[Rfam]
RNA sequence: GGUCUUGAGUAAUCGCGGUCAAGUCAGCUUGACUGAGGAAAGUCCAUGCUCGCACGGGCUGUGAUGCCUGUAGUGUUCGUGCGUCGCCCAAUAAGCGGCGGUACGCUUUUGCGUAACGGCGAAACCAAAGCUAAGGAUGCAAAUCUAUGCGGCGGUUUCUGAAAAGUGCCACAGUGACGAACCUGUUUGGAAACAUUCAGGAUGGAACGGGUAAACCCCGCGAGCGAGUAACCCAAACUUUUUGGUAGGGGCGUCCCAUGAGGGAAAUGAACUGGACAUGGGAGCACUUCGGUGCAGAUAGAUGAUUACUGAAGAAAUGCGUGACACACAUUUUGGAACGGAACAUGGCUUAUAGAG
Number, nucleotide and partner (000 for none) at each position: 001g000002g000003u000004c357005u356006u355007g353008a310009g309010u308011a307012a306013u305014c304015g000016c035017g034018g033019u032020c031021a030022a000023g000024u000025c000026a000027g000028c000029u000030u021031g020032a019033c018034u017035g016036a000037g000038g000039a000040a351041a350042g349043u000044c348045c347046a346047u345048g344049c228050u227051c226052g225053c224054a071055c070056g069057g068058g067059c066060u000061g000062u000063g000064a000065u000066g059067c058068c057069u056070g055071u054072a000073g000074u000075g000076u000077u223078c222079g221080u220081g219082c100083g099084u098085c097086g096087c095088c000089c000090a000091a000092u000093a000094a000095g087096c086097g085098g084099c083100g082101g117102u115103a114104c113105g112106c111107u000108u000109u000110u000111g106112c105113g104114u103115a102116a000117c101118g218119g217120c000121g159122a158123a157124a156125c000126c000127a000128a000129a000130g150131c149132u000133a000134a000135g146136g145137a144138u000139g000140c000141a000142a000143a000144u137145c136146u135147a000148u000149g131150c130151g000152g000153c000154g000155g000156u124157u123158u122159c121160u000161g000162a000163a000164a000165a000166g216167u215168g212169c211170c210171a000172c000173a000174g000175u000176g000177a000178c000179g000180a000181a000182c201183c200184u199185g198186u000187u000188u195189g194190g000191a000192a000193a000194c189195a188196u000197u000198c185199a184200g183201g182202a000203u000204g000205g000206a000207a000208c000209g000210g170211g169212u168213a000214a000215a167216c166217c119218c118219c081220g080221c079222g078223a077224g053225c052226g051227a050228g049229u000230a000231a000232c250233c249234c248235a000236a000237a000238c000239u000240u000241u000242u000243u000244g000245g000246u000247a000248g234249g233250g232251g000252c000253g000254u283255c282256c281257c280258a279259u278260g277261a000262g000263g000264g000265a000266a000267a000268u000269g000270a000271a000272c000273u000274g000275g000276a000277c260278a259279u258280g257281g256282g255283a254284g295285c294286a293287c292288u000289u000290c000291g000292g287293u286294g285295c284296a000297g000298a000299u000300a000301g000302a000303u000304g014305a013306u012307u011308a010309c009310u008311g000312a000313a000314g334315a333316a332317a331318u330319g329320c000321g327322u000323g000324a000325c000326a000327c321328a000329c319330a318331u317332u316333u315334u314335g000336g000337a000338a000339c000340g000341g000342a000343a000344c048345a047346u046347g045348g044349c042350u041351u040352a000353u007354a000355g006356a005357g004
RNA: Bacterial RNase P class B
Organism: Schleiferilactobacillus perolens